[Rfam]
RNA sequence: UAGCUUUCGAGGCUUGUUUUAAGUUGCCUGCGACGCUUACUUGUACACAGGCAGCUAAAGCAAGUCUGGGACGCCA
Dot-bracket structure: ..((.(((.(((((((((((.(((((((((.(.............).)))))))))))))))))))).))).))..
The record is a 76-nucleotide RNA sequence from Parambassis ranga, which matches "mir-1788 microRNA precursor family" in Rfam. The family has 11 seed sequences and 504 matches in Rfam 15.1. Pairs were carried over by alignment from the consensus structure, which was predicted with RNAalifold.